[Rfam]
A member of the RNA family "Vault RNA" from Araneus ventricosus, 87 nucleotides long. Rfam describes the family as follows. This family of RNAs are found as part of the enigmatic vault ribonucleoprotein complex. The complex consists of a major vault protein (MVP), two minor vault proteins (VPARP and TEP1), and several small untranslated RNA molecules. It has been suggested that the vault complex is involved in drug resistance.

RNA sequence: GCGCAGGUUUGGUCUAGUGGUUACUUCGAAUUGGAUCGAUCAUCCUCCCCACGGGGAGGACAACCACGGACGCUGUCCUGCGUUUUU
Dot-bracket structure: .((((((....((((.((((.....((...............................))...)))))))).....)))))).....
Numbered sequence: 001g002c003g004c005a006g007g008u009u010u011g012g013u014c015u016a017g018u019g020g021u022u023a024c025u026u027c028g029a030a031u032u033g034g035a036u037c038g039a040u041c042a043u044c045c046u047c048c049c050c051a052c053g054g055g056g057a058g059g060a061c062a063a064c065c066a067c068g069g070a071c072g073c074u075g076u077c078c079u080g081c082g083u084u085u086u087u
Stems, first nucleotide, its partner, number of pairs: 002082006012071004017067004026060002
The base pairs follow the family's consensus structure, which is taken from published work. By type it is a non-coding RNA gene. A search with the family's covariance model found it, with a score of 48 bits.